[Rfam]
RNA sequence: CCUGCCUCUAGAGGGGUUGCAGGUAUGCCUGCUGUGUCACACGUGGAUGAGUAGGUGACAGAGAGGAGAGAGGCUAUGUCUCAGCCCAGUGUUCUGUCCUAUGAACAUCUGAAUGAUUAGUAGCCUAGCAUC
Numbered sequence: 001c002c003u004g005c006c007u008c009u010a011g012a013g014g015g016g017u018u019g020c021a022g023g024u025a026u027g028c029c030u031g032c033u034g035u036g037u038c039a040c041a042c043g044u045g046g047a048u049g050a051g052u053a054g055g056u057g058a059c060a061g062a063g064a065g066g067a068g069a070g071a072g073g074c075u076a077u078g079u080c081u082c083a084g085c086c087c088a089g090u091g092u093u094c095u096g097u098c099c100u101a102u103g104a105a106c107a108u109c110u111g112a113a114u115g116a117u118u119a120g121u122a123g124c125c126u127a128g129c130a131u132c
Stems, first nucleotide, its partner, number of pairs: 002061003006057001007055004014048001020045002024041001026039002029036001068129001071126007084114001087111003090107005
About this RNA
A member of the RNA family "Small nucleolar RNA SNORA17" from Rattus norvegicus, 132 nucleotides long. The match comes from Rfam's covariance-model search (102 bits). Rfam 15.1 lists 5,784 matches to the family in 673 species. A reference for the family is Ofengand and Bakin (1997), "Mapping to nucleotide resolution of pseudouridine residues in large subunit ribosomal RNAs from representative eukaryotes, prokaryotes, archaebacteria, mitochondria and chloroplasts", J Mol Biol. Pairs were carried over by alignment from the consensus structure, which was predicted with RNAalifold. Its family is annotated with RNA processing and nucleolus in the Gene Ontology. Its Rfam clan is "SNORA17 clan".